Glycine riboswitch aptamer: a 90-nucleotide sequence from Sphingorhabdus pulchriflava. The organism belongs to Sphingorhabdus, within Bacteria.
RNA sequence: GCUGACGAAACGGGAGAGCGCGGGGGAAGCCCCGCCGCCGAAGGAGCAACCGCCCCGGAAUCUCUCAGGCAAAAGGACCGUUUUGGCUUU
Numbered sequence: 001g002c003u004g005a006c007g008a009a010a011c012g013g014g015a016g017a018g019c020g021c022g023g024g025g026g027a028a029g030c031c032c033c034g035c036c037g038c039c040g041a042a043g044g045a046g047c048a049a050c051c052g053c054c055c056c057g058g059a060a061u062c063u064c065u066c067a068g069g070c071a072a073a074a075g076g077a078c079c080g081u082u083u084u085g086g087c088u089u090u
Base pairs, nucleotide, nucleotide: 006085007084008083009082010081011080012079013078020035021034022033023032037070038069039068040066041065044064045063046062050058051057
Pairs were carried over by alignment from the consensus structure.